[Rfam]
RNA: Small Cajal body specific RNA 11
Organism: Gorilla gorilla
RNA sequence: UUGUCCUGGCCUAGGCCAUUUCUGCUCCCCUGCGCUCAGUCCUAGCAGAGUAGUCUGGCAGGACACACAGCAAUCUCCCUCUCAGUUUAGGAGGGCCGUCUCCUAAGAAUAGGGCUGGCAGAAAAGGCCAAU
Numbered sequence: 001u002u003g004u005c006c007u008g009g010c011c012u013a014g015g016c017c018a019u020u021u022c023u024g025c026u027c028c029c030c031u032g033c034g035c036u037c038a039g040u041c042c043u044a045g046c047a048g049a050g051u052a053g054u055c056u057g058g059c060a061g062g063a064c065a066c067a068c069a070g071c072a073a074u075c076u077c078c079c080u081c082u083c084a085g086u087u088u089a090g091g092a093g094g095g096c097c098g099u100c101u102c103c104u105a106a107g108a109a110u111a112g113g114g115c116u117g118g119c120a121g122a123a124a125a126g127g128c129c130a131a132u
Base pairs, nucleotide, nucleotide: 002065003064004063005062006061007060008059010058011057024054025053026052028050030048031047032046033045085128086127087126088125095119096118097117098115099114100113103112104111105110